[Rfam]
RNA sequence: UUUUAUAGGGAAAAUCUGGCCUUCCAGCAAGGGGAGGCCAGGAAAUUUUCCU
Number, nucleotide and partner (000 for none) at each position: 001u000002u000003u000004u000005a000006u000007a000008g052009g051010g050011a049012a048013a047014a046015u042016c041017u040018g039019g038020c037021c036022u035023u034024c033025c032026a000027g000028c000029a000030a000031g000032g025033g024034g023035a022036g021037g020038c019039c018040a017041g016042g015043a000044a000045a000046u014047u013048u012049u011050c010051c009052u008
Source information: The family of this 52-nucleotide RNA sequence from Lentivirus humimdef1 is "HIV Ribosomal frameshift signal". Lineage of the source: Viruses > Artverviricota > Revtraviricetes > Ortervirales > Lentivirus humimdef1. This family represents the HIV Ribosomal frameshift signal. HIV uses a system called -1 ribosomal frameshifting to produce the required ratio of Gag and Gag-Pol polyproteins. The stem-loop structure of the frameshift signal is thought to impede the ribosome and cause slippage in the 5' direction, this causes the -1 frameshift and translation then continues in the new frame. Rfam's curators put it in the seed alignment. Its family is annotated with viral translational frameshifting in the Gene Ontology.